[Rfam]
RNA sequence: UGCUUACCAGUGAUGGUUUUAAAAAAAAUGUCUGAACAAAUGAUCUCACUGUGAUAUCAGCAUAUUCUCUGAGGUAAGCU
Dot-bracket structure: .(((((((................................................................))))))).
Numbered sequence: 001u002g003c004u005u006a007c008c009a010g011u012g013a014u015g016g017u018u019u020u021a022a023a024a025a026a027a028a029u030g031u032c033u034g035a036a037c038a039a040a041u042g043a044u045c046u047c048a049c050u051g052u053g054a055u056a057u058c059a060g061c062a063u064a065u066u067c068u069c070u071g072a073g074g075u076a077a078g079c080u
Stems, first nucleotide, its partner, number of pairs: 002079007

Small nucleolar RNA SNORD72: an 80-nucleotide RNA from Parambassis ranga.
Rfam classes the family as a C/D-box small nucleolar RNA.
NCBI's taxonomy places the organism under Eukaryota, Vertebrata, Clupeocephala, Euacanthomorphacea, Parambassis.
The pairing is the family consensus, mapped onto this sequence.
snoRNA HBII-240 belongs to the CD family of snoRNAs. It is the human orthologue of the mouse MBII-240 and is predicted to guide 2'O-ribose methylation of the large 28S rRNA at residue U4590.